[Rfam]
RNA sequence: AUGCGGGACACUCCUCCCCAACGAGGGGCGCCUAUCUGUAAGGGUAGCUACA
Numbered sequence: 001a002u003g004c005g006g007g008a009c010a011c012u013c014c015u016c017c018c019c020a021a022c023g024a025g026g027g028g029c030g031c032c033u034a035u036c037u038g039u040a041a042g043g044g045u046a047g048c049u050a051c052a
Stems, first nucleotide, its partner, number of pairs: 011028006032047006
Source information:
The record is a 52-nucleotide sequence from Consotaella salsifontis, which matches "serC leader" in Rfam. The source organism's lineage runs through Bacteria, Pseudomonadota, Alphaproteobacteria, Hyphomicrobiales and Consotaella. This family is a putative regulatory RNA structure that is found upstream of the serC-serA operon in some alpha-proteobacteria. The final stem of the structure overlaps the ribosome binding site of the serC reading frame. A search with the family's covariance model found it, with a score of 66 bits. Its family is annotated with regulation of gene expression in the Gene Ontology. The pairing is the family consensus, mapped onto this sequence. By type it is a cis-regulatory leader.